Background:
This 75-nucleotide RNA belongs to the Rfam family "RT-6 RNA". Rfam's curators put it in the seed alignment.
RNA sequence: UACAUCAUAUAAUAAGGUAUGAUGGUUGGCGAUUGUUGUCAAGAGGUCAGCAGUAUAUUCACAAGGAAUAUUCAG
Numbered sequence: 001u002a003c004a005u006c007a008u009a010u011a012a013u014a015a016g017g018u019a020u021g022a023u024g025g026u027u028g029g030c031g032a033u034u035g036u037u038g039u040c041a042a043g044a045g046g047u048c049a050g051c052a053g054u055a056u057a058u059u060c061a062c063a064a065g066g067a068a069u070a071u072u073c074a075g
Stems, first nucleotide, its partner, number of pairs: 003024008054070002058067003